[Rfam]
RNA sequence: AAGGAUCGAUGAUGCAUUAGUUUAAAACUGCUUUAUCUAUCUGAUAUUUCCGAUUCGGAAUUGAAGAUACUCUUCUAGCUCCUGAGAUCCAUU
Numbered sequence: 001a002a003g004g005a006u007c008g009a010u011g012a013u014g015c016a017u018u019a020g021u022u023u024a025a026a027a028c029u030g031c032u033u034u035a036u037c038u039a040u041c042u043g044a045u046a047u048u049u050c051c052g053a054u055u056c057g058g059a060a061u062u063g064a065a066g067a068u069a070c071u072c073u074u075c076u077a078g079c080u081c082c083u084g085a086g087a088u089c090c091a092u093u
Stems, first nucleotide, its partner, number of pairs: 001093002003090004
The record is a 93-nucleotide RNA sequence from Salvia splendens, which matches "Small nucleolar RNA snoR27" in Rfam. It scores 68 bits against the family's covariance model. Rfam links the family to the GO terms nucleolus and RNA processing. Rfam classes the family as a C/D-box small nucleolar RNA.